[Rfam]
Rfam assigns this 82-nucleotide sequence from Diabrotica balteata to the family "mir-927 microRNA precursor family". Its family is annotated with miRNA-mediated post-transcriptional gene silencing and RISC complex in the Gene Ontology.
RNA sequence: GCUCAUAUGUUUUGGUUUAGAAUUCCUACGCUUUACCGUCAAUAUAAAUGGCAAAGCGUCUGGAUUCUGAAUCGAAAUGCAU
Numbered sequence: 001g002c003u004c005a006u007a008u009g010u011u012u013u014g015g016u017u018u019a020g021a022a023u024u025c026c027u028a029c030g031c032u033u034u035a036c037c038g039u040c041a042a043u044a045u046a047a048a049u050g051g052c053a054a055a056g057c058g059u060c061u062g063g064a065u066u067c068u069g070a071a072u073c074g075a076a077a078u079g080c081a082u
Base pairs, nucleotide, nucleotide: 010076011075012074014073015072016071017070018069019068020067021066023064024063025062028059029058030057031056032055033054034053036051037050